[Rfam]
RNA: Small nucleolar RNA R12
RNA sequence: UAAUGUGUGAUGAAAGAAAUCGUUCGGAUUCCCAAUGAGUUUAAUGAACUGUGAUAUCCAAACCAGCUACUUCUGACAUUA
Numbered sequence: 001u002a003a004u005g006u007g008u009g010a011u012g013a014a015a016g017a018a019a020u021c022g023u024u025c026g027g028a029u030u031c032c033c034a035a036u037g038a039g040u041u042u043a044a045u046g047a048a049c050u051g052u053g054a055u056a057u058c059c060a061a062a063c064c065a066g067c068u069a070c071u072u073c074u075g076a077c078a079u080u081a
Stems, first nucleotide, its partner, number of pairs: 001081005
Dot-bracket structure: (((((.......................................................................)))))